[Rfam]
RNA sequence: CCCGCAGAACUGCUGGCGCCCUAUACCGGCGAUAUUGCCGCCGAGGGAGUGAGUAAAUUUCUGCGCGGCGGGGCAAAAUUUUUACAGCAGGGGCUGGCACGUCAGCAGCGCUACGUUGCAGAAACGCUGACUGAAGAGUGGCGCCUUGCACCGGGUGCGCUGGAAAUCGCCUGGUUUGCUGAAGAAACGAUGGCCGUUGAGCGCGAGCUUGCCGCCCUGACCAAACGGUUGGAAAAACUGGAGGGGAAAUGA
Number, nucleotide and partner (000 for none) at each position: 001c244002c243003c000004g000005c240006a082007g081008a080009a079010c000011u077012g054013c053014u052015g000016g050017c000018g000019c047020c046021c045022u044023a000024u000025a000026c000027c040028g039029g038030c037031g036032a000033u000034a000035u000036u031037g030038c029039c028040g027041c000042c000043g000044a022045g021046g020047g019048a000049g000050u016051g000052a014053g013054u012055a000056a000057a000058u000059u000060u000061c000062u075063g074064c073065g000066c071067g000068g000069c000070g000071g066072g000073g064074c063075a062076a000077a011078a000079u009080u008081u007082u006083u000084a000085c214086a000087g212088c211089a210090g208091g000092g000093g000094c000095u203096g000097g000098c000099a000100c143101g142102u141103c140104a139105g000106c000107a000108g000109c000110g000111c000112u000113a000114c000115g128116u000117u126118g125119c000120a000121g000122a000123a000124a000125c118126g117127c000128u115129g000130a000131c000132u000133g000134a000135a000136g000137a000138g000139u104140g103141g102142c101143g100144c000145c000146u000147u000148g179149c178150a177151c000152c174153g000154g172155g171156u000157g000158c000159g167160c000161u165162g000163g000164a000165a161166a000167u159168c000169g000170c000171c155172u154173g000174g152175u000176u000177u150178g149179c148180u000181g000182a000183a000184g000185a000186a198187a197188c196189g195190a000191u000192g000193g000194c000195c189196g188197u187198u186199g000200a000201g000202c000203g095204c000205g000206a000207g000208c090209u000210u089211g088212c087213c000214g085215c000216c232217c231218u000219g229220a000221c228222c227223a000224a000225a000226c000227g222228g221229u219230u000231g217232g216233a000234a000235a000236a000237a000238c000239u000240g005241g000242a000243g002244g001245g000246g000247a000248a000249a000250u000251g000252a000

Notes:
Shown here is a 252-nucleotide sequence from Kluyvera cryocrescens, a member of the family "Erse small RNA". The literature on the family includes a 2012 paper in FEBS Lett by Chen et al., "Esre: a novel essential non-coding RNA in Escherichia coli". The base pairs follow the family's consensus structure, which was predicted with RNAfold. NCBI's taxonomy places the organism under Bacteria, Pseudomonadati, Gammaproteobacteria, Enterobacteriaceae, Kluyvera.